[Rfam]
RNA sequence: UAUCUGGUUGAUCCUGCCAGUAGUCAUAUGCUUGUCUCAAAGAUUAAGCCAUGCAUGUCUAAGUAUAAGCAAUCUAUACAGUGAAACUGCGAAUGGCUCAUUAAAUCAGUUAUCGUUUAUUUGAUAGUGCAUUACUACAUGGAUAACCGUGGUAAUUCUAGAGCUAAUACAUGCGUAAAAUCCCGUCUGGGAUGUAUUUAUUAGAUAAAAAACCAAUGUCUUCGGACUUUUUGGUGAUUCAUGAUAACUUCUCGAAGCGCAUUGCCUUUGUGCUGGCGCUGGUUCAUUCAAAUUUCUGCCCUAUCAACUGUCGAUGGUAGGAUAGAGGCCUACCAUGGUAUCAACGGGUAACGGGGAAUUAGGGUUCGAUUCCGGAGAGGGAGCCUGAGAAACGGCUACCACAUCCAAGGAAGGCAGCAGGCGCGCAAAUUACCCAAUCCUGACACGGGGAGGUAGUGACAAUAAAUAACGAUACAGGGCCUUUGGUCUUGUAAUUGGAAUGAGAACAAUUUAAACCACUUAUCGAGGAACAAUUGGAGGGCAAGUCUGGUGCCAGCAGCCGCGGUAAUUCCAGCUCCAAUAGCGUAUAUUAAAGUUGUU
Numbered sequence: 001u002a003u004c005u006g007g008u009u010g011a012u013c014c015u016g017c018c019a020g021u022a023g024u025c026a027u028a029u030g031c032u033u034g035u036c037u038c039a040a041a042g043a044u045u046a047a048g049c050c051a052u053g054c055a056u057g058u059c060u061a062a063g064u065a066u067a068a069g070c071a072a073u074c075u076a077u078a079c080a081g082u083g084a085a086a087c088u089g090c091g092a093a094u095g096g097c098u099c100a101u102u103a104a105a106u107c108a109g110u111u112a113u114c115g116u117u118u119a120u121u122u123g124a125u126a127g128u129g130c131a132u133u134a135c136u137a138c139a140u141g142g143a144u145a146a147c148c149g150u151g152g153u154a155a156u157u158c159u160a161g162a163g164c165u166a167a168u169a170c171a172u173g174c175g176u177a178a179a180a181u182c183c184c185g186u187c188u189g190g191g192a193u194g195u196a197u198u199u200a201u202u203a204g205a206u207a208a209a210a211a212a213c214c215a216a217u218g219u220c221u222u223c224g225g226a227c228u229u230u231u232u233g234g235u236g237a238u239u240c241a242u243g244a245u246a247a248c249u250u251c252u253c254g255a256a257g258c259g260c261a262u263u264g265c266c267u268u269u270g271u272g273c274u275g276g277c278g279c280u281g282g283u284u285c286a287u288u289c290a291a292a293u294u295u296c297u298g299c300c301c302u303a304u305c306a307a308c309u310g311u312c313g314a315u316g317g318u319a320g321g322a323u324a325g326a327g328g329c330c331u332a333c334c335a336u337g338g339u340a341u342c343a344a345c346g347g348g349u350a351a352c353g354g355g356g357a358a359u360u361a362g363g364g365u366u367c368g369a370u371u372c373c374g375g376a377g378a379g380g381g382a383g384c385c386u387g388a389g390a391a392a393c394g395g396c397u398a399c400c401a402c403a404u405c406c407a408a409g410g411a412a413g414g415c416a417g418c419a420g421g422c423g424c425g426c427a428a429a430u431u432a433c434c435c436a437a438u439c440c441u442g443a444c445a446c447g448g449g450g451a452g453g454u455a456g457u458g459a460c461a462a463u464a465a466a467u468a469a470c471g472a473u474a475c476a477g478g479g480c481c482u483u484u485g486g487u488c489u490u491g492u493a494a495u496u497g498g499a500a501u502g503a504g505a506a507c508a509a510u511u512u513a514a515a516c517c518a519c520u521u522a523u524c525g526a527g528g529a530a531c532a533a534u535u536g537g538a539g540g541g542c543a544a545g546u547c548u549g550g551u552g553c554c555a556g557c558a559g560c561c562g563c564g565g566u567a568a569u570u571c572c573a574g575c576u577c578c579a580a581u582a583g584c585g586u587a588u589a590u591u592a593a594a595g596u597u598g599u600u
Stems, first nucleotide, its partner, number of pairs: 004020005022591003026588007035464001037462001041457001042424001048422003052419003057090002062088003069082002097377003107298003112293002116291002122286003138173004147163001150160003180193005198247006212235004218227003257279004262275001264273002300348003307339003314336008352374004356367004379400002382397003402413001404411002430455001432454003438450005470497003473493009504524002506521001508520001510518001534580006547574004556563002
RNA: Eukaryotic small subunit ribosomal RNA, nucleotides 1 to 600